[Rfam]
RNA sequence: CAUCGCGAUGCUCUUCAGCUAUGGAGACAUCGUGAUGAGGAUACUUUCAAAACGCCAGCUGAAGGAGUUGGUCUUGUACUCACCCCAACACAUUUCACGUCUGGAGAAGGCAGGCCAAUUCCCGAAAAGGGUACAGCUGGGCCCUAACAGAGUGGGAUGGAUAGAGGAUGAGGUGCUGGACAGGCUUCAGUCCCGGCUGGAUGAACGCGAAAGCACCUGACGACGCUCCCGCUACGGGAGCACGGGUGACCGGGCGUGCACAGCCC
Numbered sequence: 001c002a003u004c005g006c007g008a009u010g011c012u013c014u015u016c017a018g019c020u021a022u023g024g025a026g027a028c029a030u031c032g033u034g035a036u037g038a039g040g041a042u043a044c045u046u047u048c049a050a051a052a053c054g055c056c057a058g059c060u061g062a063a064g065g066a067g068u069u070g071g072u073c074u075u076g077u078a079c080u081c082a083c084c085c086c087a088a089c090a091c092a093u094u095u096c097a098c099g100u101c102u103g104g105a106g107a108a109g110g111c112a113g114g115c116c117a118a119u120u121c122c123c124g125a126a127a128a129g130g131g132u133a134c135a136g137c138u139g140g141g142c143c144c145u146a147a148c149a150g151a152g153u154g155g156g157a158u159g160g161a162u163a164g165a166g167g168a169u170g171a172g173g174u175g176c177u178g179g180a181c182a183g184g185c186u187u188c189a190g191u192c193c194c195g196g197c198u199g200g201a202u203g204a205a206c207g208c209g210a211a212a213g214c215a216c217c218u219g220a221c222g223a224c225g226c227u228c229c230c231g232c233u234a235c236g237g238g239a240g241c242a243c244g245g246g247u248g249a250c251c252g253g254g255c256g257u258g259c260a261c262a263g264c265c266c
Base pairs, nucleotide, nucleotide: 001037002036003035004034005033006032007031008030009029010028012027013026014025015024016023017022055200056199057198058197059196060195064188065187066186067185068184069183071181072180073179074178077175078174079173080172081170082169083167084166086164088162091159092158093157094156096154097153098152101150102149103148109143110142111141113138114137115136121131122130123129202252203251206248207247208246221244222243226240227239228238229237230236231235253265254264255263
RNA: Ruegeria trans44 sRNA
Organism: Roseovarius sp. A46